[Rfam]
RNA sequence: CACGUGCUCCGGGGUCGGUGAAAUUCCGAGCCGGCGGUGAAAGUCCGCGACCCGCCCGCCAGCGAUGGCGGCGGCUGAUCCGGUGGAAUUCCGGGACCGACGGUCAUAGUCCGGAUGGGAGGCGCGCGUG
Numbered sequence: 001c002a003c004g005u006g007c008u009c010c011g012g013g014g015u016c017g018g019u020g021a022a023a024u025u026c027c028g029a030g031c032c033g034g035c036g037g038u039g040a041a042a043g044u045c046c047g048c049g050a051c052c053c054g055c056c057c058g059c060c061a062g063c064g065a066u067g068g069c070g071g072c073g074g075c076u077g078a079u080c081c082g083g084u085g086g087a088a089u090u091c092c093g094g095g096a097c098c099g100a101c102g103g104u105c106a107u108a109g110u111c112c113g114g115a116u117g118g119g120a121g122g123c124g125c126g127c128g129u130g
Base pairs, nucleotide, nucleotide: 003128004127005126006125007124009122010121016028017027018026030110031109032099033098034048035047036046037045043097044096052074053073079095080094081093082092083091101113102112103111
FMN riboswitch aptamer (RFN element): a 130-nucleotide RNA from Gulosibacter sp. 10. The organism belongs to Gulosibacter, within Bacteria.